[Rfam]
RNA sequence: UCUCGAAAAGGCAAAACCCGAGUAAUCGGGUGACGCAAAGUCACGGGUCCCAAUGGGACAGCCGGACCGCCACAG
Numbered sequence: 001u002c003u004c005g006a007a008a009a010g011g012c013a014a015a016a017c018c019c020g021a022g023u024a025a026u027c028g029g030g031u032g033a034c035g036c037a038a039a040g041u042c043a044c045g046g047g048u049c050c051c052a053a054u055g056g057g058a059c060a061g062c063c064g065g066a067c068c069g070c071c072a073c074a075g
Stems, first nucleotide, its partner, number of pairs: 001075001003072001011036002016031006034061001040067003044064003047059003
The record is a 75-nucleotide sequence from Neptuniibacter caesariensis, which matches "c-di-GMP-I-GGC riboswitch aptamer" in Rfam. The base pairs follow the family's consensus structure, which is taken from published work.